[Rfam]
RNA: U4 spliceosomal RNA
RNA sequence: GGGAUUGGGCAGUGGCAGUAUUGUUGCCAGCGAGGUUUACCCAAGGUGUGAUCAUUGCUGAUUGAAAACUUUUCCCACCACCCGACCAUGAUGACUUGAAAUACAGUCAACAUUGGCAAGUUUUUGACAGUCUUUAUGGAA
Numbered sequence: 001g002g003g004a005u006u007g008g009g010c011a012g013u014g015g016c017a018g019u020a021u022u023g024u025u026g027c028c029a030g031c032g033a034g035g036u037u038u039a040c041c042c043a044a045g046g047u048g049u050g051a052u053c054a055u056u057g058c059u060g061a062u063u064g065a066a067a068a069c070u071u072u073u074c075c076c077a078c079c080a081c082c083c084g085a086c087c088a089u090g091a092u093g094a095c096u097u098g099a100a101a102u103a104c105a106g107u108c109a110a111c112a113u114u115g116g117c118a119a120g121u122u123u124u125u126g127a128c129a130g131u132c133u134u135u136a137u138g139g140a141a
Stems, first nucleotide, its partner, number of pairs: 020052005026047003034042002084117001086115001088113003092109005131140003